[Rfam]
RNA sequence: GGUUUAUGAUGAAAUAGGACCUUGUUUGAUCAUAAUGAUUUAAAAAAUGAGCUUAAAAACUGAAAUC
Numbered sequence: 001g002g003u004u005u006a007u008g009a010u011g012a013a014a015u016a017g018g019a020c021c022u023u024g025u026u027u028g029a030u031c032a033u034a035a036u037g038a039u040u041u042a043a044a045a046a047a048u049g050a051g052c053u054u055a056a057a058a059a060c061u062g063a064a065a066u067c
Stems, first nucleotide, its partner, number of pairs: 001067004
This 67-nucleotide sequence from Peromyscus maniculatus belongs to the Rfam family "Small nucleolar RNA SNORD107". Rfam 15.1 lists 144 matches to the family in 129 species. The organism belongs to Peromyscus maniculatus, within Eukaryota.